[Rfam]
RNA sequence: AUUCGCGAGAAGGCCUACAACGGCAUGCCGCUGGCGCAAGCCCGGCCGCUGAUCGAAGGCAUGGCGCGGGCGCUCACGCGCGCCCAC
Dot-bracket structure: ...((((.....((([.((......))..((((......]..))))(((................)))))).......)))).....
Numbered sequence: 001a002u003u004c005g006c007g008a009g010a011a012g013g014c015c016u017a018c019a020a021c022g023g024c025a026u027g028c029c030g031c032u033g034g035c036g037c038a039a040g041c042c043c044g045g046c047c048g049c050u051g052a053u054c055g056a057a058g059g060c061a062u063g064g065c066g067c068g069g070g071c072g073c074u075c076a077c078g079c080g081c082g083c084c085c086a087c
Stems, first nucleotide, its partner, number of pairs: 004082004013071003016040001018027002030046004047068003

This 87-nucleotide sequence from Rhodanobacter spathiphylli belongs to the Rfam family "Twister_sister_ribozyme". The source organism's lineage runs through Bacteria, Gammaproteobacteria, Lysobacterales, Rhodanobacter and Rhodanobacter spathiphylli. Rfam links the family to the GO term catalytic activity. The match comes from Rfam's covariance-model search (37 bits). A reference for the family is Weinberg et al. (2015), "New classes of self-cleaving ribozymes revealed by comparative genomics analysis", Nat Chem Biol.